Shown here is an 84-nucleotide RNA from Lentivirus humimdef1, a member of the family "HIV gag stem loop 3 (GSL3)".
The organism belongs to Lentivirus humimdef1, within Viruses.
About the family: This family consists of several HIV gag stem loop 3 (GSL3) sequences. GSL3 is known to direct specific packaging of HIV-1 genomic RNA. Deletion of GSL3 leads to decreases in both viral RNA packaging and dimerisation.
It is annotated as a cis-regulatory element.
Pairs were carried over by alignment from the consensus structure, which was predicted with PFOLD.
[Rfam]
RNA sequence: GGCCAGGGGGAAAGAAAAAGUAUAAAUUAAAACAUGUUGUAUGGGCAAGCAGGGAGUUAGAACGAUUCGCAGUCAACCCUGGCC
Numbered sequence: 001g002g003c004c005a006g007g008g009g010g011a012a013a014g015a016a017a018a019a020g021u022a023u024a025a026a027u028u029a030a031a032a033c034a035u036g037u038u039g040u041a042u043g044g045g046c047a048a049g050c051a052g053g054g055a056g057u058u059a060g061a062a063c064g065a066u067u068c069g070c071a072g073u074c075a076a077c078c079c080u081g082g083c084c
Base pairs, nucleotide, nucleotide: 001084002083003082004081005080006079007078008077